[Rfam]
RNA: Small Cajal body specific RNA 6
Organism: Danio rerio
RNA sequence: GGUCAAUGAUGUGAUGUAAAAGGUCUGACAUCCAGCUCUCCUUCCAGUCCCUCAGUCUCUCCCAGCAGCCCCUGUUAAUAAUUUUCCAGCAUGCUCUAGUGGUGCAUUGCUGGAUAGAGGUGGCGGCUGAUAUUACGGACGUUUAUGCUGUAUAAUUAGUUUUUAUUGAGAUUUAUAAGACUUUGAUCAGCAUCGUCCAACAGAAACACCACACACAGGAGGCCCGGACUGAAGGAGAACAUUAAACUGGUGCAUGAUCUCAAGUUUUCAAGCUGAGACC
Numbered sequence: 001g002g003u004c005a006a007u008g009a010u011g012u013g014a015u016g017u018a019a020a021a022g023g024u025c026u027g028a029c030a031u032c033c034a035g036c037u038c039u040c041c042u043u044c045c046a047g048u049c050c051c052u053c054a055g056u057c058u059c060u061c062c063c064a065g066c067a068g069c070c071c072c073u074g075u076u077a078a079u080a081a082u083u084u085u086c087c088a089g090c091a092u093g094c095u096c097u098a099g100u101g102g103u104g105c106a107u108u109g110c111u112g113g114a115u116a117g118a119g120g121u122g123g124c125g126g127c128u129g130a131u132a133u134u135a136c137g138g139a140c141g142u143u144u145a146u147g148c149u150g151u152a153u154a155a156u157u158a159g160u161u162u163u164u165a166u167u168g169a170g171a172u173u174u175a176u177a178a179g180a181c182u183u184u185g186a187u188c189a190g191c192a193u194c195g196u197c198c199a200a201c202a203g204a205a206a207c208a209c210c211a212c213a214c215a216c217a218g219g220a221g222g223c224c225c226g227g228a229c230u231g232a233a234g235g236a237g238a239a240c241a242u243u244a245a246a247c248u249g250g251u252g253c254a255u256g257a258u259c260u261c262a263a264g265u266u267u268u269c270a271a272g273c274u275g276a277g278a279c280c
Base pairs, nucleotide, nucleotide: 001280002279003278004277034260035259037257038256041235042234043233045231046230047229048228059221060220061219062218063129064128065127066126068124069123085114086113087112088111089110090109091108094104137198138197139196140195141194143192158182159181160180161179162178163177165173